[Rfam]
Rfam assigns this 167-nucleotide RNA from Corynebacterium genitalium to the family "c-di-AMP riboswitch aptamer (ydaO/yuaA leader)".
Taxonomically the source falls in Corynebacterium genitalium (Bacteria, Actinomycetota, Mycobacteriales, Corynebacterium).
RNA sequence: AACCACAUAGAGCCGAGUUCUAGGACCCCUAUGGUCCGGAAGCCGGGGAACCAUGACUUCCCUGGGGUGAACGGGGCGCAAGGAGCGCGCAAGCGCAGGAGCGUCCUAGAGGUGACUUCCCGCACCGAACCCGACAGCUAACCCGGUAGGCGCAACUGGAGAUAUGG
Numbered sequence: 001a002a003c004c005a006c007a008u009a010g011a012g013c014c015g016a017g018u019u020c021u022a023g024g025a026c027c028c029c030u031a032u033g034g035u036c037c038g039g040a041a042g043c044c045g046g047g048g049a050a051c052c053a054u055g056a057c058u059u060c061c062c063u064g065g066g067g068u069g070a071a072c073g074g075g076g077c078g079c080a081a082g083g084a085g086c087g088c089g090c091a092a093g094c095g096c097a098g099g100a101g102c103g104u105c106c107u108a109g110a111g112g113u114g115a116c117u118u119c120c121c122g123c124a125c126c127g128a129a130c131c132c133g134a135c136a137g138c139u140a141a142c143c144c145g146g147u148a149g150g151c152g153c154a155a156c157u158g159g160a161g162a163u164a165u166g167g
Base pairs, nucleotide, nucleotide: 012151013150014149018041019040020039042147043146044145045144046143047142052064053063065132066131067130074107075106076105111126112125113124114123